The record is an 80-nucleotide RNA from Alligator mississippiensis, which matches "Mammalian CPEB3 ribozyme" in Rfam. The source organism's lineage runs through Eukaryota, Craniata, Euteleostomi, Sarcopterygii and Alligator. The family's consensus secondary structure is taken from published work.
RNA sequence: AGAGGUCUUAAGUUCAAGGCCACAGAAGAAGCUCUCACAGCGCAGCCUUGCCAGGCUCCAAAGAAUCUGCAAAUUCUGCU
Number, nucleotide and partner (000 for none) at each position: 001a000002g000003a000004g000005g000006u000007c000008u000009u000010a000011a000012g000013u000014u000015c000016a000017a048018g047019g046020c045021c000022a000023c000024a080025g079026a000027a077028g076029a075030a074031g043032c042033u000034c000035u000036c000037a000038c000039a000040g000041c000042g032043c031044a000045g020046c019047c018048u017049u000050g000051c000052c069053a068054g067055g066056c000057u064058c063059c000060a000061a000062a000063g058064a057065a000066u055067c054068u053069g052070c000071a000072a000073a000074u030075u029076c028077u027078g000079c025080u024